The family of this 126-nucleotide RNA sequence from Martelella mediterranea is "Alphaproteobacterial ar14".
The match comes from Rfam's covariance-model search (103 bits).
The organism belongs to Martelella mediterranea, within Bacteria.
Smr14C2 was renamed NfeR1 (Nodule Formation Efficiency RNA) highly expressed in salt stress and during the symbiotic interaction on legume roots.
Rfam classes the family as a small RNA.
[Rfam]
RNA sequence: GAGCUUUCGAAGGGUGCUAUCCUCCUCCCGGCCCCCUUCGAUUACGAUCGGCGAUCCUCCUCCUCCCAAAUCGCCGAUCACCACGAUGACGCCCACCGGAUCCUCCUCCCCCGGUGGGCGUUUUCA
Number, nucleotide and partner (000 for none) at each position: 001g000002a000003g000004c000005u000006u000007u041008c040009g039010a000011a037012g036013g035014g034015u000016g032017c031018u000019a000020u000021c000022c000023u000024c000025c000026u000027c000028c000029c000030g000031g017032c016033c000034c014035c013036c012037u011038u000039c009040g008041a007042u000043u000044a000045c000046g079047a078048u077049c076050g075051g074052c073053g072054a071055u070056c000057c000058u000059c000060c000061u000062c000063c000064u000065c000066c000067c000068a000069a000070a055071u054072c053073g052074c051075c050076g049077a048078u047079c046080a000081c000082c000083a000084c000085g000086a000087u000088g000089a121090c120091g119092c118093c117094c116095a115096c114097c113098g112099g111100a000101u000102c000103c000104u000105c000106c000107u000108c000109c000110c000111c099112c098113g097114g096115u095116g094117g093118g092119c091120g090121u089122u000123u000124u000125c000126a000